[Rfam]
RNA sequence: UGUCCAAUGCCACGUCGCCGGUAGCCGCUAGGCGUUGACCGGAUGCUAUGAUUGGACGGAAAUCGAUUUUAUGUUUCGCUUGCUGAUAGGAACCUGUAUAUCCGGAUUUCAGUUGAUCCGCGAGGCCGAUUUCGGCGAACAAAUUU
Numbered sequence: 001u002g003u004c005c006a007a008u009g010c011c012a013c014g015u016c017g018c019c020g021g022u023a024g025c026c027g028c029u030a031g032g033c034g035u036u037g038a039c040c041g042g043a044u045g046c047u048a049u050g051a052u053u054g055g056a057c058g059g060a061a062a063u064c065g066a067u068u069u070u071a072u073g074u075u076u077c078g079c080u081u082g083c084u085g086a087u088a089g090g091a092a093c094c095u096g097u098a099u100a101u102c103c104g105g106a107u108u109u110c111a112g113u114u115g116a117u118c119c120g121c122g123a124g125g126c127c128g129a130u131u132u133c134g135g136c137g138a139a140c141a142a143a144u145u146u
Stems, first nucleotide, its partner, number of pairs: 002057007009049001013045004020040003024033003076138005089127002095122002100117003
Shown here is a 146-nucleotide RNA from Hevea brasiliensis, a member of the family "Small nucleolar RNA snoR2/U65". NCBI's taxonomy places the organism under Eukaryota, Pentapetalae, Malpighiales, Euphorbiaceae, Hevea. Pairs were carried over by alignment from the consensus structure, which was predicted with WAR. Rfam classes the family as an H/ACA-box small nucleolar RNA. Rfam links the family to the GO terms nucleolus and RNA processing.